[Rfam]
RNA: Potassium channel RNA editing signal
Organism: Nematostella vectensis
RNA sequence: GUCGGUUAUGGGGACGUCUGUCCAGUAACAAAAUUAGGCAAAGUCAUAGGUGCGGUAUGCGCUAUUUGCGGAGUGGUAAUUGUUGCACUCCCCGUGUCUGUGAUCGGAAGCAAU
Numbered sequence: 001g002u003c004g005g006u007u008a009u010g011g012g013g014a015c016g017u018c019u020g021u022c023c024a025g026u027a028a029c030a031a032a033a034u035u036a037g038g039c040a041a042a043g044u045c046a047u048a049g050g051u052g053c054g055g056u057a058u059g060c061g062c063u064a065u066u067u068g069c070g071g072a073g074u075g076g077u078a079a080u081u082g083u084u085g086c087a088c089u090c091c092c093c094g095u096g097u098c099u100g101u102g103a104u105c106g107g108a109a110g111c112a113a114u
Stems, first nucleotide, its partner, number of pairs: 001114002004111001007108001009106003014101003019096003037077001039075002049063003